[Rfam]
RNA sequence: GUGGGUAUUUUGCCCUCAACUCGUAUAACCACGGCAAUAUGGGCUGUGGGUCUCUACAGGGAAACCGUAAAUUUCCUGGCUACGAGGAAGACAUGCCAGACG
Numbered sequence: 001g002u003g004g005g006u007a008u009u010u011u012g013c014c015c016u017c018a019a020c021u022c023g024u025a026u027a028a029c030c031a032c033g034g035c036a037a038u039a040u041g042g043g044c045u046g047u048g049g050g051u052c053u054c055u056a057c058a059g060g061g062a063a064a065c066c067g068u069a070a071a072u073u074u075c076c077u078g079g080c081u082a083c084g085a086g087g088a089a090g091a092c093a094u095g096c097c098a099g100a101c102g
Stems, first nucleotide, its partner, number of pairs: 020086006029049007059077006

A member of the RNA family "Purine riboswitch aptamer" from Ammoniphilus sp. CFH 90114, 102 nucleotides long.
The family has 133 seed sequences and 4,097 matches in Rfam 15.1.